RNA sequence: CUUGUCAAAGGCAAACCCGCCGAAAGACGGGGACGCAAAGUUUAGAGUCUACCGUGUAUUUACUACACUAUGACUGUCUGGCUGCCAUGG
Numbered sequence: 001c002u003u004g005u006c007a008a009a010g011g012c013a014a015a016c017c018c019g020c021c022g023a024a025a026g027a028c029g030g031g032g033a034c035g036c037a038a039a040g041u042u043u044a045g046a047g048u049c050u051a052c053c054g055u056g057u058a059u060u061u062a063c064u065a066c067a068c069u070a071u072g073a074c075u076g077u078c079u080g081g082c083u084g085c086c087a088u089g090g
Stems, first nucleotide, its partner, number of pairs: 001090001003087002011036002016031004021026001034076001039083004044079003047074003
RNA: c-di-GMP-I-GGC riboswitch aptamer
Organism: Isachenkonia alkalipeptolytica